[Rfam]
Nucleotides: 110
Base pairs, nucleotide, nucleotide: 004109005108006107007106010104011103012102013101014100015099017097018096019095020094021093022092023091024090025089026088027087028086029085031083032082033081036078037077038076039075041073042072043071044070046068047067048066
Number, partner (000 for none) and nucleotide at each position: 001000g002000u003000a004109g005108u006107u007106g008000u009000a010104a011103u012102u013101c014100g015099c016000a017097u018096c019095a020094a021093u022092c023091c024090a025089u026088a027087u028086g029085u030000a031083u032082u033081g034000g035000g036078g037077u038076g039075a040000g041073u042072u043071a044070g045000a046068g047067u048066g049000g050000a051000a052000c053000u054000u055000g056000a057000a058000c059000u060000a061000a062000a063000u064000u065000c066048u067047a068046c069000u070044c071043u072042a073041a074000a075039u076038c077037a078036c079000u080000c081033c082032a083031a084000c085029a086028c087027a088026u089025g090024u091023g092022g093021a094020u095019u096018g097017a098000g099015g100014u101013g102012a103011a104010u105000c106007u107006a108005a109004c110000a

Source information: The record is a 110-nucleotide RNA from Sorghum bicolor, which matches "MIR5565 microRNA precursor family" in Rfam. Taxonomically the source falls in Sorghum (Eukaryota, Streptophytina, Andropogonodae, Sorghinae). The match comes from Rfam's covariance-model search (95 bits).